[Rfam]
RNA sequence: GAUCGCGGUGAUGACUCACGAAAUUCAAGCUCAACAGACCGGAAUGCAGGGUUUUUCUUUAUUGAGAAAGACUUUGCGUGUCGAUAAUCCCGCUGAACUGAGUGAUC
Numbered sequence: 001g002a003u004c005g006c007g008g009u010g011a012u013g014a015c016u017c018a019c020g021a022a023a024u025u026c027a028a029g030c031u032c033a034a035c036a037g038a039c040c041g042g043a044a045u046g047c048a049g050g051g052u053u054u055u056u057c058u059u060u061a062u063u064g065a066g067a068a069a070g071a072c073u074u075u076g077c078g079u080g081u082c083g084a085u086a087a088u089c090c091c092g093c094u095g096a097a098c099u100g101a102g103u104g105a106u107c
Base pairs, nucleotide, nucleotide: 001107002106003105004104005103006102
Shown here is a 107-nucleotide RNA sequence from Populus tomentosa, a member of the family "Small nucleolar RNA Z107/R87". The match comes from Rfam's covariance-model search (90 bits). Rfam classes the family as a C/D-box small nucleolar RNA. NCBI's taxonomy places the organism under Eukaryota, Spermatophyta, Mesangiospermae, eudicotyledons, Populus.